[Rfam]
RNA sequence: AAGAAGUGUCAGGGGAGUGUUAGCUGAGAUUAGGCGCAGGCCUUAGACCCUUAAACCUGAAGCGGAUAAUGCCGACGUAGGAAGAUGCGCUACUUCUGAU
Numbered sequence: 001a002a003g004a005a006g007u008g009u010c011a012g013g014g015g016a017g018u019g020u021u022a023g024c025u026g027a028g029a030u031u032a033g034g035c036g037c038a039g040g041c042c043u044u045a046g047a048c049c050c051u052u053a054a055a056c057c058u059g060a061a062g063c064g065g066a067u068a069a070u071g072c073c074g075a076c077g078u079a080g081g082a083a084g085a086u087g088c089g090c091u092a093c094u095u096c097u098g099a100u
Stems, first nucleotide, its partner, number of pairs: 006088005011051004017024002032043004056081004063074003
Dot-bracket structure: .....(((((((((..((....)).......((((....))))....))))....((((...(((......)))...))))..)))))............

Annotation: The record is a 100-nucleotide RNA sequence, which matches "TPP riboswitch aptamer (THI element)" in Rfam. It scores 57 bits against the family's covariance model. The family's consensus secondary structure is taken from published work. Rfam describes the family as follows. Vitamin B(1) in its active form thiamin pyrophosphate (TPP) is an essential coenzyme that is synthesised by coupling of pyrimidine and thiazole moieties in bacteria. Rfam 15.1 lists 16,130 matches to the family in 8,693 species.